[Rfam]
RNA sequence: UAAAAGUGGAGACCAGAACCCACUGUGAAAAACGGGGCGUAUUCUGAAAAGCCAUAUGAGUAGGAAAUAU
Dot-bracket structure: .....((((..........))))............(((....[[......))).........]]......

The family of this 70-nucleotide RNA from Flavobacterium cellulosilyticum is "DUF805 RNA". A search with the family's covariance model found it, with a score of 78 bits. Rfam classes the family as a cis-regulatory element. Pairs were carried over by alignment from the consensus structure, which is taken from published work.